[Rfam]
RNA sequence: UACAAAGGGCUGAUGGUGGAUACCUAGGCACGCAGAGGCGAAGAAGGACGUGGCGACCGACGAAAAGCUCCGGGGAGCUGGAAGCAAGCAUUGAGCCGGAGAUAUCCGAAUAGGGCAACCUAAAAACAGCUUGUUGAAUAUAUAGACAAGCAUGAGCGAACCCAGCGAACUGAAACAUCUUAGUAGCUGGAGGAAAAGAAAGAAAAAUCGAUUUCCUUAGUAGUGGUGAGCGAAAGGGAAAGAGCCUAAACCAAGUGUUUUCACACUUGGGGUAGUGGGACAGCAAUAUGGAAGCUGGAAGCUAGACGAAGCAGAUAGAAACUGCACCAGAGAAGGUAAUAGUCCUGUAGUCGAAAGUGGAAGGAUACUAGCUGCAUCCCGAGUAGCGCGGAACACGGGAAAUUCCGCGUGAAUCAGCCUCGACCACGAGGUAAGGCUAAAUACUACUGCGUGACCGAUAGCGAAACAGUACCGCGAGGGAAAGGUGAAAAGAACCCCGGAAGGGGAGUGAAAUAGAAUAUGAAACCAUCAGCUUACAAG
Numbered sequence: 001u002a003c004a005a006a007g008g009g010c011u012g013a014u015g016g017u018g019g020a021u022a023c024c025u026a027g028g029c030a031c032g033c034a035g036a037g038g039c040g041a042a043g044a045a046g047g048a049c050g051u052g053g054c055g056a057c058c059g060a061c062g063a064a065a066a067g068c069u070c071c072g073g074g075g076a077g078c079u080g081g082a083a084g085c086a087a088g089c090a091u092u093g094a095g096c097c098g099g100a101g102a103u104a105u106c107c108g109a110a111u112a113g114g115g116c117a118a119c120c121u122a123a124a125a126a127c128a129g130c131u132u133g134u135u136g137a138a139u140a141u142a143u144a145g146a147c148a149a150g151c152a153u154g155a156g157c158g159a160a161c162c163c164a165g166c167g168a169a170c171u172g173a174a175a176c177a178u179c180u181u182a183g184u185a186g187c188u189g190g191a192g193g194a195a196a197a198g199a200a201a202g203a204a205a206a207a208u209c210g211a212u213u214u215c216c217u218u219a220g221u222a223g224u225g226g227u228g229a230g231c232g233a234a235a236g237g238g239a240a241a242g243a244g245c246c247u248a249a250a251c252c253a254a255g256u257g258u259u260u261u262c263a264c265a266c267u268u269g270g271g272g273u274a275g276u277g278g279g280a281c282a283g284c285a286a287u288a289u290g291g292a293a294g295c296u297g298g299a300a301g302c303u304a305g306a307c308g309a310a311g312c313a314g315a316u317a318g319a320a321a322c323u324g325c326a327c328c329a330g331a332g333a334a335g336g337u338a339a340u341a342g343u344c345c346u347g348u349a350g351u352c353g354a355a356a357g358u359g360g361a362a363g364g365a366u367a368c369u370a371g372c373u374g375c376a377u378c379c380c381g382a383g384u385a386g387c388g389c390g391g392a393a394c395a396c397g398g399g400a401a402a403u404u405c406c407g408c409g410u411g412a413a414u415c416a417g418c419c420u421c422g423a424c425c426a427c428g429a430g431g432u433a434a435g436g437c438u439a440a441a442u443a444c445u446a447c448u449g450c451g452u453g454a455c456c457g458a459u460a461g462c463g464a465a466a467c468a469g470u471a472c473c474g475c476g477a478g479g480g481a482a483a484g485g486u487g488a489a490a491a492g493a494a495c496c497c498c499g500g501a502a503g504g505g506g507a508g509u510g511a512a513a514u515a516g517a518a519u520a521u522g523a524a525a526c527c528a529u530c531a532g533c534u535u536a537c538a539a540g
Stems, first nucleotide, its partner, number of pairs: 007535010023485002027456002029453007036445002038157002046107003049062003068101006077089003112121003127154002129151007161192001162190005172179002202209002212441001213240005223231002243438004251270007277380003281374004291368001293366001295364002301358003305352003311325004328332001334346003386410008417432005472479002495506004
Bacterial large subunit ribosomal RNA: a 540-nucleotide part of an RNA from Aliterella atlantica. The literature on the family includes a 2001 paper in Science by Yusupov et al., "Crystal structure of the ribosome at 5.5 A resolution". Lineage of the source: Bacteria > Cyanobacteriota > Chroococcidiopsidales > Aliterellaceae > Aliterella atlantica. Pairs were carried over by alignment from the consensus structure, which is taken from published work.